[Rfam]
RNA: Selenocysteine transfer RNA
RNA sequence: GGAGGCGCAGGGCGAGCUGGUGCUGUCCCCGGACUUCAAAUCCGGUGUGGGGUGCGAAGAGCAUCCUGGGCGGGUUCGAUUCCCGUGCGCCUCC
Numbered sequence: 001g002g003a004g005g006c007g008c009a010g011g012g013c014g015a016g017c018u019g020g021u022g023c024u025g026u027c028c029c030c031g032g033a034c035u036u037c038a039a040a041u042c043c044g045g046u047g048u049g050g051g052g053u054g055c056g057a058a059g060a061g062c063a064u065c066c067u068g069g070g071c072g073g074g075u076u077c078g079a080u081u082c083c084c085g086u087g088c089g090c091c092u093c094c
Base pairs, nucleotide, nucleotide: 001094002093003092004091005090006089007088008087009086012027015024016023017022029045030044031043032042033041048068049067050066051065052064071085072084073083074082
Dot-bracket structure: (((((((((..(..(((....)))..).(((((.......)))))..(((((...........)))))..((((.......)))))))))))))